RNA: Actino-pnp RNA
Organism: Paractinoplanes abujensis
RNA sequence: ACCGGUCCUCGGUAGUGGUAACCAGGCACAAGAAUCCUGGGUACUUCGAUCGAAGACCGGC
Dot-bracket structure: .((((((.(((((...((((.(((((.(......)))))).))))...))))).)))))).